[Rfam]
RNA sequence: AAUUCUUAUGGGCAAAAUCACUGAAAAGUGAUGACGCAAAGCUAGAGGGGCCUCUGUCAAUGACAAAGCCAGCCAGCUGCCAUC
Numbered sequence: 001a002a003u004u005c006u007u008a009u010g011g012g013c014a015a016a017a018u019c020a021c022u023g024a025a026a027a028g029u030g031a032u033g034a035c036g037c038a039a040a041g042c043u044a045g046a047g048g049g050g051c052c053u054c055u056g057u058c059a060a061u062g063a064c065a066a067a068g069c070c071a072g073c074c075a076g077c078u079g080c081c082a083u084c
Stems, first nucleotide, its partner, number of pairs: 012037002017032006040078004047074002049070003056064003
The family of this 84-nucleotide RNA from Mesobacillus boroniphilus is "c-di-GMP-I riboswitch aptamer". Rfam's curators write: GEMM was predicted in a large-scale screen for bacterial structured RNA regulatory elements. The organism belongs to Mesobacillus boroniphilus, within Bacteria.